A member of the RNA family "Plastid-psbA-1 3UTR RNA" from Musa balbisiana, 104 nucleotides long. The family's consensus secondary structure was predicted with LocARNA. It scores 64 bits against the family's covariance model. The family is grouped with related families in Rfam's "Plastid-psbA 3UTR RNA clan". The literature on the family includes a 2023 paper in Plant Commun by Richter et al., "Retrograde signaling in plants: A critical review focusing on the GUN pathway and beyond". From the family's description: Plastid psbA-1 is a non-coding RNA (ncRNA) present in plastids. Lineage of the source: Eukaryota > Tracheophyta > Liliopsida > Musaceae > Musa.

RNA sequence: UUGAAGUUGAAAAUAAUUUUUUUGUGAAAAAAAAAAUAAAGUAUCAACCAAAGUAGCAAUACCCCAUGUCUUGCCUAAAGCAAGACAUGGGGUAUUGCUACUUU
Numbered sequence: 001u002u003g004a005a006g007u008u009g010a011a012a013a014u015a016a017u018u019u020u021u022u023u024g025u026g027a028a029a030a031a032a033a034a035a036a037u038a039a040a041g042u043a044u045c046a047a048c049c050a051a052a053g054u055a056g057c058a059a060u061a062c063c064c065c066a067u068g069u070c071u072u073g074c075c076u077a078a079a080g081c082a083a084g085a086c087a088u089g090g091g092g093u094a095u096u097g098c099u100a101c102u103u104u
Base pairs, nucleotide, nucleotide: 008013050104051103052102053101054100055099056098057097058096059095060094061093062092064090065089066088068086069085070084071083072082